Rfam assigns this 71-nucleotide RNA from Cyphellophora europaea to the family "bZIP non canonical Hac1/Xbp1 intron". Rfam describes the family as follows. bZIP intron RNA is a non-canonical intron that was first reported in HAC1 gene in yeast and XBP1 gene in Metazoa. The family's consensus secondary structure was predicted with RNAfold. NCBI's taxonomy places the organism under Eukaryota, Dikarya, Ascomycota, leotiomyceta, Cyphellophora europaea.
RNA sequence: CUCCUCCUCCGUCCUGACACAUUAUCCUGCCGCGGUAAUGUGUGACCUGCAGUGUCAGACGGAGAAUGGAG
Numbered sequence: 001c002u003c004c005u006c007c008u009c010c011g012u013c014c015u016g017a018c019a020c021a022u023u024a025u026c027c028u029g030c031c032g033c034g035g036u037a038a039u040g041u042g043u044g045a046c047c048u049g050c051a052g053u054g055u056c057a058g059a060c061g062g063a064g065a066a067u068g069g070a071g
Stems, first nucleotide, its partner, number of pairs: 004071004009062005021039006044056003